[Rfam]
RNA sequence: CCCGCCACUGUCCCUGUCCUGUGGUGCAGUGACUGGUGCAGCCCAGAGGUGAGCUGAGAGAAAAUGCCCGCGUAGGAAACAGAGUUACUCUCCUUGUGGGUAACUCUGUGCCGAAGUUUGGAGACAGGA
Numbered sequence: 001c002c003c004g005c006c007a008c009u010g011u012c013c014c015u016g017u018c019c020u021g022u023g024g025u026g027c028a029g030u031g032a033c034u035g036g037u038g039c040a041g042c043c044c045a046g047a048g049g050u051g052a053g054c055u056g057a058g059a060g061a062a063a064a065u066g067c068c069c070g071c072g073u074a075g076g077a078a079a080c081a082g083a084g085u086u087a088c089u090c091u092c093c094u095u096g097u098g099g100g101u102a103a104c105u106c107u108g109u110g111c112c113g114a115a116g117u118u119u120g121g122a123g124a125c126a127g128g129a
Stems, first nucleotide, its partner, number of pairs: 005049002008046003018036002021033001022031002065122001067120001070117002073115001075112002080108006088100003

The family of this 129-nucleotide sequence from Thinocorus orbignyianus is "Small nucleolar RNA SNORA65". About the family: U65 belongs to the H/ACA class of snoRNAs which are thought to guide the sites of modification of uridines to pseudouridines. Lineage of the source: Eukaryota > Euteleostomi > Sauria > Aves > Thinocorus. The base pairs follow the family's consensus structure, which was predicted with RNAalifold. For this family Rfam cites "RNomics: an experimental approach that identifies 201 candidates for novel, small, non-messenger RNAs in mouse" (Huttenhofer et al., EMBO J, 2001). Clan: SNORA65 clan.